[Rfam]
RNA sequence: CGACCGGGACGACCCGGUUCUCGCUGAGGGACAAGGCCGGGACGACCCGG
Numbered sequence: 001c002g003a004c005c006g007g008g009a010c011g012a013c014c015c016g017g018u019u020c021u022c023g024c025u026g027a028g029g030g031a032c033a034a035g036g037c038c039g040g041g042a043c044g045a046c047c048c049g050g
Base pairs, nucleotide, nucleotide: 002019003018004017005016006015007014008013037050038049039048040047041046

Notes
A member of the RNA family "Guanidine-II riboswitch aptamer (mini-ykkC)" from Azorhizobium oxalatiphilum, 50 nucleotides long. The organism belongs to Azorhizobium, within Bacteria. Gene Ontology term of the family: regulation of gene expression. The match comes from Rfam's covariance-model search (38 bits). Rfam describes the family as follows. Simpler in structure and has fewer highly conserved nucleotide positions than the ykkC-yxkD leader. Despite this each of its two stem-loop structures directly bind free guanidine.